[Rfam]
RNA sequence: CUGCGGCGCCGACUAUUCGGCGCCGUAGUUUAAGAACGAGGCGUUACCCAAAAGGCGACGCCUCUCACUUUGAAAAAUGACGACCAGCAGGGGCAUCCGGGCUGGUACCCGGACUAUCUGCGGGAUCCGAAGUGGCUUUACCUAGUCGAGGUUAGGCGGGGUAAUUUCAUGCGGUUUCCACGCCGGUGGUGUCCCCUUACCGAGGGUGACCA
Numbered sequence: 001c002u003g004c005g006g007c008g009c010c011g012a013c014u015a016u017u018c019g020g021c022g023c024c025g026u027a028g029u030u031u032a033a034g035a036a037c038g039a040g041g042c043g044u045u046a047c048c049c050a051a052a053a054g055g056c057g058a059c060g061c062c063u064c065u066c067a068c069u070u071u072g073a074a075a076a077a078u079g080a081c082g083a084c085c086a087g088c089a090g091g092g093g094c095a096u097c098c099g100g101g102c103u104g105g106u107a108c109c110c111g112g113a114c115u116a117u118c119u120g121c122g123g124g125a126u127c128c129g130a131a132g133u134g135g136c137u138u139u140a141c142c143u144a145g146u147c148g149a150g151g152u153u154a155g156g157c158g159g160g161g162u163a164a165u166u167u168c169a170u171g172c173g174g175u176u177u178c179c180a181c182g183c184c185g186g187u188g189g190u191g192u193c194c195c196c197u198u199a200c201c202g203a204g205g206g207u208g209a210c211c212a
Stems, first nucleotide, its partner, number of pairs: 001028012039063006047055002089197005094191002096113006114189005120183003124178002127174002132170004138164004145157003149153001
The record is a 212-nucleotide sequence from Pseudomonas sp. GV071, which matches "sucA-II RNA" in Rfam. By type it is a cis-regulatory element. The family's consensus secondary structure is taken from published work. NCBI's taxonomy places the organism under Bacteria, Pseudomonadota, Pseudomonadales, Pseudomonadaceae, Pseudomonas.